[Rfam]
RNA sequence: CUAGAUGAACGACUUAUCGCUUUAAUUUAUUAAAGAGGAAAGUCCGGGCUCCGCAAAGACACAGUGCCAGAUAAUACCUGGCGGGGGAAACCCUAGGGAUAGUGCCACAGAAAAUAUACCGCCAUAACAUGGCAAGGGUGAAAAGGUGUGGUAAGAGCGCACCGGUUCUAUUGGUAACAAUGAACGCUGGAAAACCCCACUGGGAGCAAGACUAAGUAGAGAUGACAUUGUUGCAAAACUAAAAGCCGUCUUUGGCUAGUCAUCAGGGUUAGUUGCAUGAGCUUAAGAGUGAUCUUAAGCCUAGAGAAAUGAUAGGUUUAAAUGACAGAACCCGGCUUAUAGUUUGUCUAGCAAA
Numbered sequence: 001c002u003a004g005a006u007g008a009a010c011g012a013c014u015u016a017u018c019g020c021u022u023u024a025a026u027u028u029a030u031u032a033a034a035g036a037g038g039a040a041a042g043u044c045c046g047g048g049c050u051c052c053g054c055a056a057a058g059a060c061a062c063a064g065u066g067c068c069a070g071a072u073a074a075u076a077c078c079u080g081g082c083g084g085g086g087g088a089a090a091c092c093c094u095a096g097g098g099a100u101a102g103u104g105c106c107a108c109a110g111a112a113a114a115u116a117u118a119c120c121g122c123c124a125u126a127a128c129a130u131g132g133c134a135a136g137g138g139u140g141a142a143a144a145g146g147u148g149u150g151g152u153a154a155g156a157g158c159g160c161a162c163c164g165g166u167u168c169u170a171u172u173g174g175u176a177a178c179a180a181u182g183a184a185c186g187c188u189g190g191a192a193a194a195c196c197c198c199a200c201u202g203g204g205a206g207c208a209a210g211a212c213u214a215a216g217u218a219g220a221g222a223u224g225a226c227a228u229u230g231u232u233g234c235a236a237a238a239c240u241a242a243a244a245g246c247c248g249u250c251u252u253u254g255g256c257u258a259g260u261c262a263u264c265a266g267g268g269u270u271a272g273u274u275g276c277a278u279g280a281g282c283u284u285a286a287g288a289g290u291g292a293u294c295u296u297a298a299g300c301c302u303a304g305a306g307a308a309a310u311g312a313u314a315g316g317u318u319u320a321a322a323u324g325a326c327a328g329a330a331c332c333c334g335g336c337u338u339a340u341a342g343u344u345u346g347u348c349u350a351g352c353a354a355a
Base pairs, nucleotide, nucleotide: 001351002350003349004348005347006346007345008344009343010342011340012317013316014315015314016313017312018311020035021034022033023032024031025030040338041337042336044335045334046333047332048331049206050205051204052203057252058251062202063201064200065199066198067081068080069079070078082096083094084093085092086091097197098196102195103194105190106189119137120136121133122132123131124130125129145163146162147161148160149159150158164187165185166184167183168182170181171180172179173178210274211273212272213271221264222263223262224261225260244257245256246255247254281300282299283298284297285296286295287294288293